[Rfam]
RNA: Purine riboswitch aptamer
Organism: Bacillus sp. AFS073361
RNA sequence: AGAAGGUAAUAAUAAUUGCAUCGUAUAAUCUUGGGGAUAUGGCCCAAAAGUUUCUACCGAGCCACCGUAAAUGGCUUGACUACGAGGCAGUGUUUAAUAUAA
Numbered sequence: 001a002g003a004a005g006g007u008a009a010u011a012a013u014a015a016u017u018g019c020a021u022c023g024u025a026u027a028a029u030c031u032u033g034g035g036g037a038u039a040u041g042g043c044c045c046a047a048a049a050g051u052u053u054c055u056a057c058c059g060a061g062c063c064a065c066c067g068u069a070a071a072u073g074g075c076u077u078g079a080c081u082a083c084g085a086g087g088c089a090g091u092g093u094u095u096a097a098u099a100u101a102a
Stems, first nucleotide, its partner, number of pairs: 018088002021085005029049001031047005058078007
Dot-bracket structure: .................((.(((((...(.(((((.......))))).)........(((((((.......)))))))..))))).))..............